[Rfam]
Nucleotides: 087
Stems, first nucleotide, its partner, number of pairs: 001079009013047004018042001028037003049064004
Number, partner (000 for none) and nucleotide at each position: 001079g002078g003077u004076c005075g006074g007073g008072a009071g010000u011000a012000c013047g014046a015045a016044g017000g018042u019000c020000a021000u022000a023000c024000a025000a026000u027000a028037c029036c030035c031000u032000a033000a034000c035030g036029g037028g038000a039000a040000a041000a042018g043000c044016c045015u046014u047013c048000u049064a050063c051062c052061g053000a054000c055000u056000a057000u058000g059000g060000a061052c062051g063050g064049u065000u066000g067000a068000g069000a070000g071009c072008u073007c074006c075005c076004g077003a078002c079001c080000u081000u082000c083000u084000u085000u086000c087000u
A member of the RNA family "sRNA-Xcc1" from Halodesulfovibrio spirochaetisodalis, 87 nucleotides long. A search with the family's covariance model found it, with a score of 64 bits. It is annotated as a small RNA.